[Rfam]
RNA sequence: AGGAUGAGACUGUUGGGUGUGUCUGCCUGUCUACACUUGCUGUGCAGACCUUCUGCUCCUGUACAGCAGGCACAGACAGGCAGACCAGAUGGCAGCCCACAG
Numbered sequence: 001a002g003g004a005u006g007a008g009a010c011u012g013u014u015g016g017g018u019g020u021g022u023c024u025g026c027c028u029g030u031c032u033a034c035a036c037u038u039g040c041u042g043u044g045c046a047g048a049c050c051u052u053c054u055g056c057u058c059c060u061g062u063a064c065a066g067c068a069g070g071c072a073c074a075g076a077c078a079g080g081c082a083g084a085c086c087a088g089a090u091g092g093c094a095g096c097c098c099a100c101a102g
Stems, first nucleotide, its partner, number of pairs: 018087002024082009036070001038068006045061003
RNA: mir-214 microRNA precursor family